[Rfam]
RNA: Histidine operon leader
RNA sequence: CCAUCAUCACCAUCACCCAAUGUAGUCUUUCGGGAGAUGAACGCAUACCCGGGGGACAGGAAAUUCCCGGAGGCUAAGAUCAAAAGAUUUUUAGAAUUAACCCUCGGGAGACUCACAUCUUCCGAGGGUUUUUCAAU
Numbered sequence: 001c002c003a004u005c006a007u008c009a010c011c012a013u014c015a016c017c018c019a020a021u022g023u024a025g026u027c028u029u030u031c032g033g034g035a036g037a038u039g040a041a042c043g044c045a046u047a048c049c050c051g052g053g054g055g056a057c058a059g060g061a062a063a064u065u066c067c068c069g070g071a072g073g074c075u076a077a078g079a080u081c082a083a084a085a086g087a088u089u090u091u092u093a094g095a096a097u098u099a100a101c102c103c104u105c106g107g108g109a110g111a112c113u114c115a116c117a118u119c120u121u122c123c124g125a126g127g128g129u130u131u132u133u134c135a136a137u
Stems, first nucleotide, its partner, number of pairs: 009046001011039004017034002048070002051068003055065002094134003099130012